[Rfam]
RNA sequence: GGGACCCACUGCUCUUGGGUCCCGCGUCGGGAUCCAUUUCGCUUGGGUCCUUUGUAGGACCCAAUUCUAUUGUGUCCUAUAUCAGGACUCAAGGUUUUUGGGUCUU
Number, nucleotide and partner (000 for none) at each position: 001g106002g105003g104004a103005c102006c101007c100008a099009c000010u000011g000012c000013u094014c093015u092016u091017g090018g089019g088020u087021c086022c085023c000024g083025c000026g000027u000028c000029g078030g077031g076032a075033u074034c000035c072036a071037u000038u000039u000040c000041g000042c000043u064044u063045g062046g061047g060048u059049c058050c057051u000052u000053u000054g000055u000056a000057g050058g049059a048060c047061c046062c045063a044064a043065u000066u000067c000068u000069a000070u000071u036072g035073u000074g033075u032076c031077c030078u029079a000080u000081a000082u000083c024084a000085g022086g021087a020088c019089u018090c017091a016092a015093g014094g013095u000096u000097u000098u000099u008100g007101g006102g005103u004104c003105u002106u001
About this RNA:
A member of the RNA family "MIR6450 microRNA precursor family" from Populus trichocarpa, 106 nucleotides long. Pairs were carried over by alignment from the consensus structure, which was predicted with RNAalifold. The source organism's lineage runs through Eukaryota, Euphyllophyta, Spermatophyta, eudicotyledons and Populus. A search with the family's covariance model found it, with a score of 74 bits.